[Rfam]
RNA sequence: AGUAAAGGGAAGCUCAGUGCUGAGGUCACCUACAGAGUGCUGAGGUACUCUCUAAGCUUACCUUGGGGAAGGUCUGAGUUAGAGCCACUUACUGUCCUCACAGGACAUUGCUUGACUAAAGCAAGUGAGUACCCAGCAAACACAAACCUGUUUCUAUCCAUGCAAAAGAUGUAGAACGUACGGGGUGUCCACCUACAGAUGCAAAGGAAACAGGCUUGGAAGUGACUCAUGGCUGGCAUCUUCAAGUUCAAUGGCUGUCAGGAGGCAGAUGCUUCCCAACCCAAUUCAGACUACUCUCCCUCUACU
Numbered sequence: 001a002g003u004a005a006a007g008g009g010a011a012g013c014u015c016a017g018u019g020c021u022g023a024g025g026u027c028a029c030c031u032a033c034a035g036a037g038u039g040c041u042g043a044g045g046u047a048c049u050c051u052c053u054a055a056g057c058u059u060a061c062c063u064u065g066g067g068g069a070a071g072g073u074c075u076g077a078g079u080u081a082g083a084g085c086c087a088c089u090u091a092c093u094g095u096c097c098u099c100a101c102a103g104g105a106c107a108u109u110g111c112u113u114g115a116c117u118a119a120a121g122c123a124a125g126u127g128a129g130u131a132c133c134c135a136g137c138a139a140a141c142a143c144a145a146a147c148c149u150g151u152u153u154c155u156a157u158c159c160a161u162g163c164a165a166a167a168g169a170u171g172u173a174g175a176a177c178g179u180a181c182g183g184g185g186u187g188u189c190c191a192c193c194u195a196c197a198g199a200u201g202c203a204a205a206g207g208a209a210a211c212a213g214g215c216u217u218g219g220a221a222g223u224g225a226c227u228c229a230u231g232g233c234u235g236g237c238a239u240c241u242u243c244a245a246g247u248u249c250a251a252u253g254g255c256u257g258u259c260a261g262g263a264g265g266c267a268g269a270u271g272c273u274u275c276c277c278a279a280c281c282c283a284a285u286u287c288a289g290a291c292u293a294c295u296c297u298c299c300c301u302c303u304a305c306u
Base pairs, nucleotide, nucleotide: 001306002305003304004303008299009298010297015257016256017255018254021065022064023063024062025061035050036049037048038047039046040045074289075288076287077286078285083234084233085232086231093107094106095105096104097103108124109123110122111121112120113119125230126229127228128227129226130225147214148213261276262275263274264273265272266271
RNA: Nuclear RNase P
Organism: Hymenochirus boettgeri